[Rfam]
RNA sequence: AUGAUUGUAAGAGGAGAGACCACUUUUUGUGGCGCCGAAGGAGCAAGCAAGAACUGCGAAUCUCUCAGGCAAAAAGACUCUUAUGUGACG
Numbered sequence: 001a002u003g004a005u006u007g008u009a010a011g012a013g014g015a016g017a018g019a020c021c022a023c024u025u026u027u028u029g030u031g032g033c034g035c036c037g038a039a040g041g042a043g044c045a046a047g048c049a050a051g052a053a054c055u056g057c058g059a060a061u062c063u064c065u066c067a068g069g070c071a072a073a074a075a076g077a078c079u080c081u082u083a084u085g086u087g088a089c090g
Stems, first nucleotide, its partner, number of pairs: 006085008020032004034070003037066002041064003047057002
This 90-nucleotide sequence from Aquibacillus koreensis belongs to the Rfam family "Glycine riboswitch aptamer". It scores 76 bits against the family's covariance model. The organism belongs to Aquibacillus, within Bacteria.